[Rfam]
RNA sequence: AUCUCACAAUUUAUUUUAAUGCCGACGUCGAAGGAGUUGCAUGCUUCUGAAUUAUCUAGUAUCAGAAAACAGAGAUAAUUCAAUGGGUGCAGUCCUUUUCCUUUGUAGGAGUUGGUGUAGAUUAUGUCGGGUUGACCGACAGCAUAGCUAAAAACCAUCGUGAAGUCGUUGCUUCGUGCCAUGGCUCGUGAUGACCGAAUGCUACGUACAUUUG
Numbered sequence: 001a002u003c004u005c006a007c008a009a010u011u012u013a014u015u016u017u018a019a020u021g022c023c024g025a026c027g028u029c030g031a032a033g034g035a036g037u038u039g040c041a042u043g044c045u046u047c048u049g050a051a052u053u054a055u056c057u058a059g060u061a062u063c064a065g066a067a068a069a070c071a072g073a074g075a076u077a078a079u080u081c082a083a084u085g086g087g088u089g090c091a092g093u094c095c096u097u098u099u100c101c102u103u104u105g106u107a108g109g110a111g112u113u114g115g116u117g118u119a120g121a122u123u124a125u126g127u128c129g130g131g132u133u134g135a136c137c138g139a140c141a142g143c144a145u146a147g148c149u150a151a152a153a154a155c156c157a158u159c160g161u162g163a164a165g166u167c168g169u170u171g172c173u174u175c176g177u178g179c180c181a182u183g184g185c186u187c188g189u190g191a192u193g194a195c196c197g198a199a200u201g202c203u204a205c206g207u208a209c210a211u212u213u214g
Base pairs, nucleotide, nucleotide: 025118026117027116028115029114039093040092046086047085052078053077054076055075056074057073142207143206145204146203147202148201156193157192158191159190160189161188162187163186165185166184167183168182169181171179172178

Rfam assigns this 214-nucleotide sequence from Schizosaccharomyces cryophilus to the family "small nucleolar RNA snR42". Lineage of the source: Eukaryota > Ascomycota > Taphrinomycotina > Schizosaccharomyces > Schizosaccharomyces cryophilus. It is annotated as an H/ACA-box small nucleolar RNA. The match comes from Rfam's covariance-model search (158 bits). The family's consensus secondary structure was predicted with RNAalifold.